[Rfam]
RNA sequence: UUAAGAGUUUUAUAGGGUUCCGUAGUUUUGAAUCACAAACUAGCCUGGUCCGAGAUAAAACAUGCAAUUUUAUUGUAUACACGGAAGGAUAAAAGCCUGGGAGAU
Numbered sequence: 001u002u003a004a005g006a007g008u009u010u011u012a013u014a015g016g017g018u019u020c021c022g023u024a025g026u027u028u029u030g031a032a033u034c035a036c037a038a039a040c041u042a043g044c045c046u047g048g049u050c051c052g053a054g055a056u057a058a059a060a061c062a063u064g065c066a067a068u069u070u071u072a073u074u075g076u077a078u079a080c081a082c083g084g085a086a087g088g089a090u091a092a093a094a095g096c097c098u099g100g101g102a103g104a105u
Base pairs, nucleotide, nucleotide: 007061008060009059010058011057012056015051016050020048021047022045023042024041025040026039027038028037062078063077064076065075066074067073080100082103086098087097088096
RNA: Guanidine-I riboswitch aptamer